RNA sequence: AAGUCCCUCUUUGAAGAGGGACCGGAAAUGAGCUUGCUCAUUUGCAGGGGGAUGUG
Numbered sequence: 001a002a003g004u005c006c007c008u009c010u011u012u013g014a015a016g017a018g019g020g021a022c023c024g025g026a027a028a029u030g031a032g033c034u035u036g037c038u039c040a041u042u043u044g045c046a047g048g049g050g051g052a053u054g055u056g
Stems, first nucleotide, its partner, number of pairs: 004021007024045001026043007
This 56-nucleotide RNA sequence from Gracilimonas mengyeensis belongs to the Rfam family "Whalefall-1 RNA".
A search with the family's covariance model found it, with a score of 39 bits.
It is annotated as a small RNA.
Pairs were carried over by alignment from the consensus structure, which is taken from published work.
The family has 14 seed sequences and 134 matches in Rfam 15.1.